[Rfam]
RNA: ssnA RNA
Organism: Hydrogenoanaerobacterium saccharovorans
RNA sequence: AAGAAAACGGCUGAAACGGAGUGCUUUGCGCACGGGCUGAAUGUUCGA
Numbered sequence: 001a002a003g004a005a006a007a008c009g010g011c012u013g014a015a016a017c018g019g020a021g022u023g024c025u026u027u028g029c030g031c032a033c034g035g036g037c038u039g040a041a042u043g044u045u046c047g048a
Base pairs, nucleotide, nucleotide: 008039009038010037011036012035021033022032023031024030